[Rfam]
RNA sequence: AGCGGUAACGGUAAUGGAUUCUGCCUGGCAUAAAGCCGAACCGCUUCCCCGACGAAGCUGAUGACUCCUACUCGACG
Number, nucleotide and partner (000 for none) at each position: 001a000002g000003c000004g000005g000006u000007a000008a000009c000010g025011g024012u023013a022014a000015u000016g068017g067018a066019u000020u064021c063022u013023g012024c011025c010026u000027g000028g000029c000030a000031u000032a000033a000034a000035g000036c000037c000038g000039a000040a000041c000042c000043g058044c057045u056046u055047c000048c000049c000050c000051g000052a000053c000054g000055a046056a045057g044058c043059u000060g000061a000062u000063g021064a020065c000066u018067c017068c016069u000070a000071c000072u000073c000074g000075a000076c000077g000
RNA: Fluoride riboswitch aptamer (crcB RNA motif)